[Rfam]
RNA sequence: UGGGGGCACAGAGUUGCAGUUGAUCGAAACUAGAUCAUGUGCGCUAAGUUGUCCCGAAAGAGAUUCGGAUUAUAAGAAAAUGUUGCUUGUCGUCGAGUAAUAUUGAUAUUCAUUCGUACAUUU
Numbered sequence: 001u002g003g004g005g006g007c008a009c010a011g012a013g014u015u016g017c018a019g020u021u022g023a024u025c026g027a028a029a030c031u032a033g034a035u036c037a038u039g040u041g042c043g044c045u046a047a048g049u050u051g052u053c054c055c056g057a058a059a060g061a062g063a064u065u066c067g068g069a070u071u072a073u074a075a076g077a078a079a080a081u082g083u084u085g086c087u088u089g090u091c092g093u094c095g096a097g098u099a100a101u102a103u104u105g106a107u108a109u110u111c112a113u114u115c116g117u118a119c120a121u122u123u
Base pairs, nucleotide, nucleotide: 003055004054005053006052007051008050009048012045013044014043016042017041018040021037022036023035024034025033066116067115068114069113070112072110074109076107081102082101083100084099085098086097087096088095

Rfam assigns this 123-nucleotide RNA sequence from Caenorhabditis japonica to the family "Caenorhabditis snoRNA ceN45".
A reference for the family is Jia et al. (2007), "Systematic identification of non-coding RNA 2,2,7-trimethylguanosine cap structures in Caenorhabditis elegans", BMC Mol Biol.
It scores 103 bits against the family's covariance model.